[Rfam]
RNA sequence: UUGUUUGCAGGUGCAGCACCAUCAAGAUUCACAUGCAAUUUACACCCUAUAAGAGAUUUUUGACAAAAUUUCUUUCCUAGGAGAGUUUUGACUUGAGAAUCUUGAUGAUGCUGCAUCAGCAGUAAA
Number, nucleotide and partner (000 for none) at each position: 001u000002u000003g000004u000005u000006u000007g000008c000009a000010g117011g116012u115013g114014c113015a112016g111017c110018a109019c000020c107021a106022u105023c104024a103025a102026g101027a100028u099029u098030c097031a000032c095033a094034u000035g000036c000037a000038a000039u000040u000041u000042a000043c000044a000045c000046c000047c000048u000049a000050u000051a000052a000053g000054a000055g000056a000057u000058u000059u000060u000061u000062g000063a000064c000065a000066a000067a000068a000069u000070u000071u000072c000073u000074u000075u000076c000077c000078u000079a000080g000081g000082a000083g000084a000085g000086u000087u000088u000089u000090g000091a000092c000093u000094u033095g032096a000097g030098a029099a028100u027101c026102u025103u024104g023105a022106u021107g020108a000109u018110g017111c016112u015113g014114c013115a012116u011117c010118a000119g000120c000121a000122g000123u000124a000125a000126a000
RNA: mir-172 microRNA precursor family
Organism: Glycine max